[Rfam]
RNA: c-di-GMP-I riboswitch aptamer
RNA sequence: AUAUGAAAAGGGCAAAAUUAUCGAAAGAUAAUGACGCAAAGCCUUGGGCCUAAAGUAUAUUUUACUAUGGUAGCCAGGUUGCCGAA
Numbered sequence: 001a002u003a004u005g006a007a008a009a010g011g012g013c014a015a016a017a018u019u020a021u022c023g024a025a026a027g028a029u030a031a032u033g034a035c036g037c038a039a040a041g042c043c044u045u046g047g048g049c050c051u052a053a054a055g056u057a058u059a060u061u062u063u064a065c066u067a068u069g070g071u072a073g074c075c076a077g078g079u080u081g082c083c084g085a086a
Stems, first nucleotide, its partner, number of pairs: 012037002017032006040080004045076003048071003055065003